Record summary: Shown here is a 75-nucleotide sequence from Actinoplanes sp. N902-109, a member of the family "SAH (S-adenosyl-L-homocysteine) riboswitch aptamer".
RNA sequence: CAGACCGAGGGGCGCUGCGACGGGGAGACCCGCCACGCUCGGCCUGGUUCCACCGACCAAGGGCGUCCUCCGGAU
Numbered sequence: 001c002a003g004a005c006c007g008a009g010g011g012g013c014g015c016u017g018c019g020a021c022g023g024g025g026a027g028a029c030c031c032g033c034c035a036c037g038c039u040c041g042g043c044c045u046g047g048u049u050c051c052a053c054c055g056a057c058c059a060a061g062g063g064c065g066u067c068c069u070c071c072g073g074a075u
Stems, first nucleotide, its partner, number of pairs: 002045002005042004021032004
Notes
The source organism's lineage runs through Bacteria, Bacillati, Actinomycetota, Micromonosporaceae and Actinoplanes.